[Rfam]
RNA sequence: GACCCUUAGUGACAACGAGAGAGAGCACGCUGGAAUGCUUUCACGCAAUAAGCCUGGAUGUGUUCUUGCGUGCCCUUUCCCGUUGUCGCCAACUA
Numbered sequence: 001g002a003c004c005c006u007u008a009g010u011g012a013c014a015a016c017g018a019g020a021g022a023g024a025g026c027a028c029g030c031u032g033g034a035a036u037g038c039u040u041u042c043a044c045g046c047a048a049u050a051a052g053c054c055u056g057g058a059u060g061u062g063u064u065c066u067u068g069c070g071u072g073c074c075c076u077u078u079c080c081c082g083u084u085g086u087c088g089c090c091a092a093c094u095a
Stems, first nucleotide, its partner, number of pairs: 010088005016082002020078002023075001025073006032066003
Shown here is a 95-nucleotide sequence from Physcomitrium patens, a member of the family "MIR535 microRNA precursor family". The base pairs follow the family's consensus structure, which was predicted with RNAalifold.